[Rfam]
RNA sequence: UCCGCCCAUUCAUUUUUUUCUCGUAUAUAUUCGGGAGAGGCCCGAAUGUUUCUACCCGGAAACCUUAAUUUCUGGACUACGAGCCUAAUAAACCGACAA
Numbered sequence: 001u002c003c004g005c006c007c008a009u010u011c012a013u014u015u016u017u018u019u020c021u022c023g024u025a026u027a028u029a030u031u032c033g034g035g036a037g038a039g040g041c042c043c044g045a046a047u048g049u050u051u052c053u054a055c056c057c058g059g060a061a062a063c064c065u066u067a068a069u070u071u072c073u074g075g076a077c078u079a080c081g082a083g084c085c086u087a088a089u090a091a092a093c094c095g096a097c098a099a
Stems, first nucleotide, its partner, number of pairs: 020083006029047007056075007
The family of this 99-nucleotide RNA sequence from Paenibacillus oryzae is "Purine riboswitch aptamer". The match comes from Rfam's covariance-model search (61 bits).